[Rfam]
RNA sequence: ACUUCCCGGGCCGGAACGAAAAGUUGAUGGGUAUGAGGAUACCGAGAGGCUUUUGGCUUGUGGUUGUGAUGUUGUGUUUGCAAGUUGUCUGGCACUCCAGACGCAGUAGCAGAAGCUACUCUUUUUCACUUCCUGUACAUUUACCCUGUCUGUCCAUAGUGAUUUAUGCAGCACCGCACUUUGCGGUGCUUUUUUUU
Numbered sequence: 001a002c003u004u005c006c007c008g009g010g011c012c013g014g015a016a017c018g019a020a021a022a023g024u025u026g027a028u029g030g031g032u033a034u035g036a037g038g039a040u041a042c043c044g045a046g047a048g049g050c051u052u053u054u055g056g057c058u059u060g061u062g063g064u065u066g067u068g069a070u071g072u073u074g075u076g077u078u079u080g081c082a083a084g085u086u087g088u089c090u091g092g093c094a095c096u097c098c099a100g101a102c103g104c105a106g107u108a109g110c111a112g113a114a115g116c117u118a119c120u121c122u123u124u125u126u127c128a129c130u131u132c133c134u135g136u137a138c139a140u141u142u143a144c145c146c147u148g149u150c151u152g153u154c155c156a157u158a159g160u161g162a163u164u165u166a167u168g169c170a171g172c173a174c175c176g177c178a179c180u181u182u183g184c185g186g187u188g189c190u191u192u193u194u195u196u197u
Base pairs, nucleotide, nucleotide: 009058010057011056012055015054016053021052022051023050024049025048028045030043031042032041033040034039086103087102088101089100090099091098092097105120106119107118108117109116110115138168139167140166170190171189172188173187174186175185176184177183
RNA: GcvB RNA
Organism: Chimaeribacter arupi